[Rfam]
RNA sequence: GGUUUUAACCCAGUUAACCAAGGUUAGAAUGGAUUCCGACCAUUCGAAAGAGUGUGUUGAAUAACAAUAAUUUUUGGAACAGCUUAUUCAGGGUUAUCCGCAAAAGAUAA
Numbered sequence: 001g002g003u004u005u006u007a008a009c010c011c012a013g014u015u016a017a018c019c020a021a022g023g024u025u026a027g028a029a030u031g032g033a034u035u036c037c038g039a040c041c042a043u044u045c046g047a048a049a050g051a052g053u054g055u056g057u058u059g060a061a062u063a064a065c066a067a068u069a070a071u072u073u074u075u076g077g078a079a080c081a082g083c084u085u086a087u088u089c090a091g092g093g094u095u096a097u098c099c100g101c102a103a104a105a106g107a108u109a110a
Stems, first nucleotide, its partner, number of pairs: 007035002009031001014027001016025003037059004041054005085107001087105002091101001092099002